[Rfam]
RNA: Archaeal small subunit ribosomal RNA, nucleotides 522 to 879
RNA sequence: GGCUUGAAGCGCCCGUAGCCGGCCCAUAAAGUCACUGUUUAAAGACCCGGGCUCAACCCGGGAAAGGGCAGUGAUACUUAUGGGCUAGGGGGCGGGAAAGGUCGGAGGUACUCCCGGAGUAGGGGCGAAAUCCGUAGAUCCCGGGAGGACCACCAGUGGCGAAAGCGUCCGGCUAGAACGCGCCCGACGGUGAGGGGCGAAAGCCGGGGCAGCAAAAGGGAUUAGAUACCCCUGUAGUCCCGGCUGUAAACGAUGCAGGCUAGGUGUCGCGUGGGUCUAGAGCCCGCGCGGUGCCGCAGGGAAACCGGUAAGCCCGCCGCCUGGGGAGUACGGCCGCAAGGCUGAAACUUAAAGGAAU
Numbered sequence: 001g002g003c004u005u006g007a008a009g010c011g012c013c014c015g016u017a018g019c020c021g022g023c024c025c026a027u028a029a030a031g032u033c034a035c036u037g038u039u040u041a042a043a044g045a046c047c048c049g050g051g052c053u054c055a056a057c058c059c060g061g062g063a064a065a066g067g068g069c070a071g072u073g074a075u076a077c078u079u080a081u082g083g084g085c086u087a088g089g090g091g092g093c094g095g096g097a098a099a100g101g102u103c104g105g106a107g108g109u110a111c112u113c114c115c116g117g118a119g120u121a122g123g124g125g126c127g128a129a130a131u132c133c134g135u136a137g138a139u140c141c142c143g144g145g146a147g148g149a150c151c152a153c154c155a156g157u158g159g160c161g162a163a164a165g166c167g168u169c170c171g172g173c174u175a176g177a178a179c180g181c182g183c184c185c186g187a188c189g190g191u192g193a194g195g196g197g198c199g200a201a202a203g204c205c206g207g208g209g210c211a212g213c214a215a216a217a218g219g220g221a222u223u224a225g226a227u228a229c230c231c232c233u234g235u236a237g238u239c240c241c242g243g244c245u246g247u248a249a250a251c252g253a254u255g256c257a258g259g260c261u262a263g264g265u266g267u268c269g270c271g272u273g274g275g276u277c278u279a280g281a282g283c284c285c286g287c288g289c290g291g292u293g294c295c296g297c298a299g300g301g302a303a304a305c306c307g308g309u310a311a312g313c314c315c316g317c318c319g320c321c322u323g324g325g326g327a328g329u330a331c332g333g334c335c336g337c338a339a340g341g342c343u344g345a346a347a348c349u350u351a352a353a354g355g356a357a358u
Stems, first nucleotide, its partner, number of pairs: 001321003009318001011198004016192001018191003022085007030078002032074009046062006089185003092181003100174007107151002111147007122133003159166002203244006212238002217233004255317002258314003263295014299306002323350003332343004